The record is a 112-nucleotide sequence from Halalkalibacter suaedae, which matches "SAM riboswitch aptamer (S box leader)" in Rfam.
Lineage of the source: Bacteria > Bacillati > Caryophanales > Bacillaceae > Halalkalibacter.
RNA sequence: UUCUUAUCAAGAGAGGUCGAGGGUAUGGCCCUAUGACACCUCAGCAACCAACAAUGAUCUUUCAUUGUAAGGUGCUAAUUCCAACAAGUUUAGCCGACUUGAAAGAUAAGAA
Numbered sequence: 001u002u003c004u005u006a007u008c009a010a011g012a013g014a015g016g017u018c019g020a021g022g023g024u025a026u027g028g029c030c031c032u033a034u035g036a037c038a039c040c041u042c043a044g045c046a047a048c049c050a051a052c053a054a055u056g057a058u059c060u061u062u063c064a065u066u067g068u069a070a071g072g073u074g075c076u077a078a079u080u081c082c083a084a085c086a087a088g089u090u091u092a093g094c095c096g097a098c099u100u101g102a103a104a105g106a107u108a109a110g111a112a
Stems, first nucleotide, its partner, number of pairs: 001112008013042005021031003026083003043076004048072002051068006080104001085101006